[Rfam]
Annotation:
Shown here is a 464-nucleotide RNA sequence from Sinosuthora webbiana, a member of the family "Vertebrate telomerase RNA". Gene Ontology terms of the family: telomerase catalytic core complex, telomerase activity and telomere maintenance via telomerase. Clan: Telomerase clan. Telomerase is a ribonucleoprotein reverse transcriptase that synthesises telomeric DNA. Telomerase RNAs differ greatly in sequence and structure between vertebrates, ciliates and yeasts, but they share a 5' pseudoknot structure close to the template sequence. Vertebrate telomerase RNAs have a 3' H/ACA snoRNA-like domain. By type it is a non-coding RNA gene. Pairs were carried over by alignment from the consensus structure, which is taken from published work. NCBI's taxonomy places the organism under Eukaryota, Opisthokonta, Aves, Telluraves, Sinosuthora.

RNA sequence: UUUGCCGGGGUGGGCAGGCCCUGCGGCCAACUAACCCUAAUGGCGGCUGCGACCCUCAAACCCACCCGCUGUUUUACUCGCUGACUUUCAGCGGGCAAAGGGCGCGGCUCAGGGGAAGGGGGGGGCGGUGAUGGGGAGGAAAAGAGUUCCGGCCUCAAAAAAAGCCAGCGAUGGGGAUCCACACCCCGGCCCACCCUGGGGUCCCUGUCCCUCCAGAGAUCUGUCCAGGGAUGGUCCAGCCCUCGCCCCUCGUGGAGGCCGCGGUCGGUAGGCCCAGCGCCACUGCCGCCGCGAAGAGUUCGUCUCUGUCAGCCUCGGCGGUGGCCGGGACCUGAGGGCCGGCCCGCCUGCCCUGGGCAGCAGGGGGACCCCAGCAGAACAAAACGGGUGCGGCGCCGUGGGGCGCUGAGCAGCCGUGGCUCCCAGAGUUGUGGGAGUGCGCGGUCGGCGCCGCCCCAACAUCC
Numbered sequence: 001u002u003u004g005c006c007g008g009g010g011u012g013g014g015c016a017g018g019c020c021c022u023g024c025g026g027c028c029a030a031c032u033a034a035c036c037c038u039a040a041u042g043g044c045g046g047c048u049g050c051g052a053c054c055c056u057c058a059a060a061c062c063c064a065c066c067c068g069c070u071g072u073u074u075u076a077c078u079c080g081c082u083g084a085c086u087u088u089c090a091g092c093g094g095g096c097a098a099a100g101g102g103c104g105c106g107g108c109u110c111a112g113g114g115g116a117a118g119g120g121g122g123g124g125g126c127g128g129u130g131a132u133g134g135g136g137a138g139g140a141a142a143a144g145a146g147u148u149c150c151g152g153c154c155u156c157a158a159a160a161a162a163a164g165c166c167a168g169c170g171a172u173g174g175g176g177a178u179c180c181a182c183a184c185c186c187c188g189g190c191c192c193a194c195c196c197u198g199g200g201g202u203c204c205c206u207g208u209c210c211c212u213c214c215a216g217a218g219a220u221c222u223g224u225c226c227a228g229g230g231a232u233g234g235u236c237c238a239g240c241c242c243u244c245g246c247c248c249c250u251c252g253u254g255g256a257g258g259c260c261g262c263g264g265u266c267g268g269u270a271g272g273c274c275c276a277g278c279g280c281c282a283c284u285g286c287c288g289c290c291g292c293g294a295a296g297a298g299u300u301c302g303u304c305u306c307u308g309u310c311a312g313c314c315u316c317g318g319c320g321g322u323g324g325c326c327g328g329g330a331c332c333u334g335a336g337g338g339c340c341g342g343c344c345c346g347c348c349u350g351c352c353c354u355g356g357g358c359a360g361c362a363g364g365g366g367g368a369c370c371c372c373a374g375c376a377g378a379a380c381a382a383a384a385c386g387g388g389u390g391c392g393g394c395g396c397c398g399u400g401g402g403g404c405g406c407u408g409a410g411c412a413g414c415c416g417u418g419g420c421u422c423c424c425a426g427a428g429u430u431g432u433g434g435g436a437g438u439g440c441g442c443g444g445u446c447g448g449c450g451c452c453g454c455c456c457c458a459a460c461a462u463c464c
Stems, first nucleotide, its partner, number of pairs: 004190009014180001016178001019175003053102004065095007080169004085164001086162003196374007229344002232341006241329003245325003249320001251318001260293005266288004271281003295307004388456001390454008414444005421436004